mir-574 microRNA precursor family: a 79-nucleotide sequence from Pipistrellus kuhlii. Lineage of the source: Eukaryota > Craniata > Vertebrata > Vespertilionidae > Pipistrellus.
RNA sequence: AGGCCGAAAGAGAGAGGCAGGGCCUGAUCUGCAGCCUCCAUGGCAGCUGUUGAUCAGCUGUUGCCCCUCUCUCUCUCCA
Numbered sequence: 001a002g003g004c005c006g007a008a009a010g011a012g013a014g015a016g017g018c019a020g021g022g023c024c025u026g027a028u029c030u031g032c033a034g035c036c037u038c039c040a041u042g043g044c045a046g047c048u049g050u051u052g053a054u055c056a057g058c059u060g061u062u063g064c065c066c067c068u069c070u071c072u073c074u075c076u077c078c079a
Stems, first nucleotide, its partner, number of pairs: 009072006016065005022059001024057006032049004

A search with the family's covariance model found it, with a score of 86 bits.
A reference for the family is Lui et al. (2007), "Patterns of known and novel small RNAs in human cervical cancer", Cancer Res.
Rfam links the family to the GO terms miRNA-mediated post-transcriptional gene silencing and RISC complex.